[Rfam]
The record is an 84-nucleotide RNA sequence from Drosophila pseudoobscura, which matches "mir-980 microRNA precursor family" in Rfam. The base pairs follow the family's consensus structure, which was predicted with RNAalifold. Rfam links the family to the GO terms RISC complex and miRNA-mediated post-transcriptional gene silencing. It is one of the family's seed sequences.
RNA sequence: AUUGAAUGUGAGUCUCUCACAUGGCUGGUCUAGCUGACUUGUUUCUAAUAUUGCUAGCUGCCUUGUGAAGGGCUUACGUGUUUU
Numbered sequence: 001a002u003u004g005a006a007u008g009u010g011a012g013u014c015u016c017u018c019a020c021a022u023g024g025c026u027g028g029u030c031u032a033g034c035u036g037a038c039u040u041g042u043u044u045c046u047a048a049u050a051u052u053g054c055u056a057g058c059u060g061c062c063u064u065g066u067g068a069a070g071g072g073c074u075u076a077c078g079u080g081u082u083u084u
Base pairs, nucleotide, nucleotide: 004081006079007078008077009076010075011074012073013072014071015070017068018067019066020065023062024061030057031056032055033054034053